[Rfam]
RNA sequence: GGGCAAUCGGUGGAUGCCUAGGCACCAAGAGCCGAUGAAGGACGUUAUAGCCUGCGAUAAGCCACGGGGAGCUGGCAAAUAAGCUUCGAUCCGUGGAUCUCCGAAUAGGGAAACCUCGAAUACCGGAGGUAAAAGUCCGGCGACCUCUACCUGAACACAUAGGGUAGUUGGAGGGAACGUGGGGAAGUGAAACAUCUUAGUACCCACAGGAAGAGAAAACAACAGUGAUUCCGUCAGUAGUGGCGAGCGAACGCGGAAGAGGCCAAACCGUACCUGUGUGAUAGCUGACAGGCGUUGCAGAUACGGUGUUGUGGGGUCAUUCAGACCAUGCUGUCACUGGUCAAGAAGUCAAAAAUGAUCGUUUAAGACAAAGCGUUUUGGGAUAGCGCGGCAGAGAAGGUAACACCCCUGUAGUCGUAAGACGAUCACUUCUGAGUGAUACCCCAAGUAACACGGAACCCCUGAAAUUCUGUGUGAAUCCGGCGGGACCACCCGCUAAGCCUAAAUACUCCUUGGUGACCGAUAGCGGACAAGUACCGUGAGGGAAAGGUGAAAAGUACCCCGGGAGGGGAGUGAAAUAGUACCUGAAACCGAUUGCCU
Numbered sequence: 001g002g003g004c005a006a007u008c009g010g011u012g013g014a015u016g017c018c019u020a021g022g023c024a025c026c027a028a029g030a031g032c033c034g035a036u037g038a039a040g041g042a043c044g045u046u047a048u049a050g051c052c053u054g055c056g057a058u059a060a061g062c063c064a065c066g067g068g069g070a071g072c073u074g075g076c077a078a079a080u081a082a083g084c085u086u087c088g089a090u091c092c093g094u095g096g097a098u099c100u101c102c103g104a105a106u107a108g109g110g111a112a113a114c115c116u117c118g119a120a121u122a123c124c125g126g127a128g129g130u131a132a133a134a135g136u137c138c139g140g141c142g143a144c145c146u147c148u149a150c151c152u153g154a155a156c157a158c159a160u161a162g163g164g165u166a167g168u169u170g171g172a173g174g175g176a177a178c179g180u181g182g183g184g185a186a187g188u189g190a191a192a193c194a195u196c197u198u199a200g201u202a203c204c205c206a207c208a209g210g211a212a213g214a215g216a217a218a219a220c221a222a223c224a225g226u227g228a229u230u231c232c233g234u235c236a237g238u239a240g241u242g243g244c245g246a247g248c249g250a251a252c253g254c255g256g257a258a259g260a261g262g263c264c265a266a267a268c269c270g271u272a273c274c275u276g277u278g279u280g281a282u283a284g285c286u287g288a289c290a291g292g293c294g295u296u297g298c299a300g301a302u303a304c305g306g307u308g309u310u311g312u313g314g315g316g317u318c319a320u321u322c323a324g325a326c327c328a329u330g331c332u333g334u335c336a337c338u339g340g341u342c343a344a345g346a347a348g349u350c351a352a353a354a355a356u357g358a359u360c361g362u363u364u365a366a367g368a369c370a371a372a373g374c375g376u377u378u379u380g381g382g383a384u385a386g387c388g389c390g391g392c393a394g395a396g397a398a399g400g401u402a403a404c405a406c407c408c409c410u411g412u413a414g415u416c417g418u419a420a421g422a423c424g425a426u427c428a429c430u431u432c433u434g435a436g437u438g439a440u441a442c443c444c445c446a447a448g449u450a451a452c453a454c455g456g457a458a459c460c461c462c463u464g465a466a467a468u469u470c471u472g473u474g475u476g477a478a479u480c481c482g483g484c485g486g487g488a489c490c491a492c493c494c495g496c497u498a499a500g501c502c503u504a505a506a507u508a509c510u511c512c513u514u515g516g517u518g519a520c521c522g523a524u525a526g527c528g529g530a531c532a533a534g535u536a537c538c539g540u541g542a543g544g545g546a547a548a549g550g551u552g553a554a555a556a557g558u559a560c561c562c563c564g565g566g567a568g569g570g571g572a573g574u575g576a577a578a579u580a581g582u583a584c585c586u587g588a589a590a591c592c593g594a595u596u597g598c599c600u
Stems, first nucleotide, its partner, number of pairs: 001600010016585001017550002021521002023518007030510002032174002040102003043056003062096007071084003107116003117142002123140005144171002147167006178209001179207005189196002219226002229506001230257005240248002260503004268306005274300005313445003317439005353431002356428009367416003373389004378385001392396001398410003451475008482497005537544002560571004
Rfam assigns this 600-nucleotide part of an RNA from Propioniferax innocua to the family "Bacterial large subunit ribosomal RNA".
NCBI's taxonomy places the organism under Bacteria, Actinomycetota, Actinomycetes, Propionibacteriales, Propioniferax.
The match comes from Rfam's covariance-model search (2812 bits).
The literature on the family includes a 2002 paper in BMC Bioinformatics by Cannone et al., "The comparative RNA web (CRW) site: an online database of comparative sequence and structure information for ribosomal, intron, and other RNAs".